Shown here is a 90-nucleotide sequence from Actinokineospora auranticolor, a member of the family "ZMP/ZTP riboswitch aptamer (pfl RNA motif)". The base pairs follow the family's consensus structure, which is taken from published work. The match comes from Rfam's covariance-model search (53 bits).
[Rfam]
RNA sequence: CUCCCUGGUCGUGACUGGCGUGCACGGGUGGGGUCAACCACCGGGGAGCGGCCGCAGCGGACAGUGGCACCGAACGCCUGGGUGUCCCCG
Numbered sequence: 001c002u003c004c005c006u007g008g009u010c011g012u013g014a015c016u017g018g019c020g021u022g023c024a025c026g027g028g029u030g031g032g033g034u035c036a037a038c039c040a041c042c043g044g045g046g047a048g049c050g051g052c053c054g055c056a057g058c059g060g061a062c063a064g065u066g067g068c069a070c071c072g073a074a075c076g077c078c079u080g081g082g083u084g085u086c087c088c089c090g
Stems, first nucleotide, its partner, number of pairs: 003057001006054007015045002017078005028041004067085005